[Rfam]
Overview:
MIR2593 microRNA precursor family: a 115-nucleotide RNA from Medicago truncatula. The source organism's lineage runs through Eukaryota, Streptophyta, Streptophytina, Fabales and Medicago. The family's consensus secondary structure was predicted with RNAalifold.
RNA sequence: UUAUAAGCAAAAAUCAACUUUUUAGGUUCAUUUAAUAAAUGAUGUAUUUGGUCAAGAAUAUAGACUUGAUACAUCAUUCAUUGAAUGAACCUAAAAAAUUGAUUUUUGCUUAUAA
Numbered sequence: 001u002u003a004u005a006a007g008c009a010a011a012a013a014u015c016a017a018c019u020u021u022u023u024a025g026g027u028u029c030a031u032u033u034a035a036u037a038a039a040u041g042a043u044g045u046a047u048u049u050g051g052u053c054a055a056g057a058a059u060a061u062a063g064a065c066u067u068g069a070u071a072c073a074u075c076a077u078u079c080a081u082u083g084a085a086u087g088a089a090c091c092u093a094a095a096a097a098a099u100u101g102a103u104u105u106u107u108g109c110u111u112a113u114a115a
Stems, first nucleotide, its partner, number of pairs: 002114006009107005015101003019097007027089010038078007050066003